[Rfam]
RNA sequence: AAGUAGCCGGUAGCAGAGUUGCAAUAGCCGGAGCUUUAGACUUUGCA
Numbered sequence: 001a002a003g004u005a006g007c008c009g010g011u012a013g014c015a016g017a018g019u020u021g022c023a024a025u026a027g028c029c030g031g032a033g034c035u036u037u038a039g040a041c042u043u044u045g046c047a
Stems, first nucleotide, its partner, number of pairs: 001035001007031002010029001011026002014045005
A member of the RNA family "Exoribonuclease-resistant RNA (xrRNA) plant-infecting virus (class 3)" from Polerovirus PPOV, 47 nucleotides long. It scores 34 bits against the family's covariance model. The family's consensus secondary structure is taken from published work. On this family, see Gezelle et al., bioRxiv [Preprint] 2024: "The pseudoknot structure of a viral RNA reveals a conserved mechanism for programmed exoribonuclease resistance". Its family is annotated with viral RNA genome replication in the Gene Ontology. It is annotated as a cis-regulatory element. The source organism's lineage runs through Viruses, Riboviria, Orthornavirae, Solemoviridae and Polerovirus PPOV.